[Rfam]
Shown here is a 149-nucleotide RNA sequence from Pseudarthrobacter sp. BIM B-2242, a member of the family "c-di-AMP riboswitch aptamer (ydaO/yuaA leader)".

RNA sequence: UUCCCGGAUCCCGUAUUCAGAGGCAGAGGCGGGGGACCCAGAGUCCCGGGCGUAAAUGCCCUUGGGGUGAAGCCAGCACGUGAUGUUUCCGUGUGGCCGGAUGCCCUCAUCCGAACCCGACAGCUAACUCCGCAGGUGUGAGAGGCGAU
Number, nucleotide and partner (000 for none) at each position: 001u000002u000003c000004c000005c000006g000007g000008a000009u138010c000011c136012c135013g000014u000015a000016u028017u027018c026019a000020g000021a000022g000023g000024c000025a000026g018027a017028g016029g133030c132031g131032g130033g129034g128035g000036a000037c000038c000039c064040a063041g000042a000043g000044u000045c000046c000047c000048g000049g000050g000051c000052g000053u000054a000055a000056a000057u000058g000059c000060c000061c000062u000063u040064g039065g118066g117067g116068u000069g000070a000071a000072g000073c096074c095075a094076g000077c000078a000079c000080g000081u000082g000083a000084u000085g000086u000087u000088u000089c000090c000091g000092u000093g000094u075095g074096g073097c000098c000099g112100g111101a110102u109103g000104c000105c000106c000107u000108c000109a102110u101111c100112c099113g000114a000115a000116c067117c066118c065119g000120a000121c000122a000123g000124c000125u000126a000127a000128c034129u033130c032131c031132g030133c029134a000135g012136g011137u000138g009139u000140g000141a000142g000143a000144g000145g000146c000147g000148a000149u000
Pairs were carried over by alignment from the consensus structure. The match comes from Rfam's covariance-model search (59 bits).